[Rfam]
RNA sequence: GUGCCUUAAACUAAUGAGUAAGGAAAAUUACGAGCCCUGGUGACGCUUGGCUCACUAUGUCUCUGUGCCUCGCGCACUGAAUCUUUCGAGGGGUACAGGUCGCCUCUCGCCGGCUCGCCUACUUCGCUUGAGCCGUUGAGGUUGGUAGCGAUUUGCCCU
Numbered sequence: 001g002u003g004c005c006u007u008a009a010a011c012u013a014a015u016g017a018g019u020a021a022g023g024a025a026a027a028u029u030a031c032g033a034g035c036c037c038u039g040g041u042g043a044c045g046c047u048u049g050g051c052u053c054a055c056u057a058u059g060u061c062u063c064u065g066u067g068c069c070u071c072g073c074g075c076a077c078u079g080a081a082u083c084u085u086u087c088g089a090g091g092g093g094u095a096c097a098g099g100u101c102g103c104c105u106c107u108c109g110c111c112g113g114c115u116c117g118c119c120u121a122c123u124u125c126g127c128u129u130g131a132g133c134c135g136u137u138g139a140g141g142u143u144g145g146u147a148g149c150g151a152u153u154u155g156c157c158c159u
Base pairs, nucleotide, nucleotide: 004023005022006021007020008019032053033052034051035050036049039046056076058074059073060072090159091158092157093156094155097154098153099152100151101150102149103148107139108138111135112134113133114132116130117127118126
U12 minor spliceosomal RNA: a 159-nucleotide RNA from Darwinula stevensoni.
A reference for the family is Tarn and Steitz (1997), "Pre-mRNA splicing: the discovery of a new spliceosome doubles the challenge", Trends Biochem Sci.
Rfam classes the family as a spliceosomal small nuclear RNA.
A search with the family's covariance model found it, with a score of 87 bits.
The family has 62 seed sequences and 2,106 matches in Rfam 15.1.